Notes: The family of this 151-nucleotide RNA sequence from Duffyella gerundensis is "STAXI RNA". A search with the family's covariance model found it, with a score of 87 bits. Lineage of the source: Bacteria > Pseudomonadati > Enterobacterales > Erwiniaceae > Duffyella. Rfam classes the family as a small RNA.
RNA sequence: CGUCGUCUCUGACGACCACCAAUGAUUCAUCAGCCUGAGAGAAUCGCCUUCGGGUGGCUGAACAGAAAGCUCCUGUAGCCUGAAAGGGAGCACACAUCGUGUGGUACAUCUGCGCACCUUUGGAAGCAGAUAUCGUCAACAGACGGCACCU
Numbered sequence: 001c002g003u004c005g006u007c008u009c010u011g012a013c014g015a016c017c018a019c020c021a022a023u024g025a026u027u028c029a030u031c032a033g034c035c036u037g038a039g040a041g042a043a044u045c046g047c048c049u050u051c052g053g054g055u056g057g058c059u060g061a062a063c064a065g066a067a068a069g070c071u072c073c074u075g076u077a078g079c080c081u082g083a084a085a086g087g088g089a090g091c092a093c094a095c096a097u098c099g100u101g102u103g104g105u106a107c108a109u110c111u112g113c114g115c116a117c118c119u120u121u122g123g124a125a126g127c128a129g130a131u132a133u134c135g136u137c138a139a140c141a142g143a144c145g146g147c148a149c150c151u
Stems, first nucleotide, its partner, number of pairs: 002016006024045005030061006046055003069091005075107003079104002092102003109130005117146002135144003